The family of this 95-nucleotide RNA sequence from Teichococcus deserti is "terC RNA".
The organism belongs to Roseomonas, within Bacteria.
[Rfam]
RNA sequence: UUCUUGAUCCGGGCCCCUCUGGCGACCCGGCGAUGACCUGAGCCUGCCUGCAGGGCCGGCUCGGGUGAUCGCUCUCGUGAUGUCGGAUCGACUUC
Numbered sequence: 001u002u003c004u005u006g007a008u009c010c011g012g013g014c015c016c017c018u019c020u021g022g023c024g025a026c027c028c029g030g031c032g033a034u035g036a037c038c039u040g041a042g043c044c045u046g047c048c049u050g051c052a053g054g055g056c057c058g059g060c061u062c063g064g065g066u067g068a069u070c071g072c073u074c075u076c077g078u079g080a081u082g083u084c085g086g087a088u089c090g091a092c093u094u095c
Stems, first nucleotide, its partner, number of pairs: 006089007022078004
The family's consensus secondary structure is taken from published work.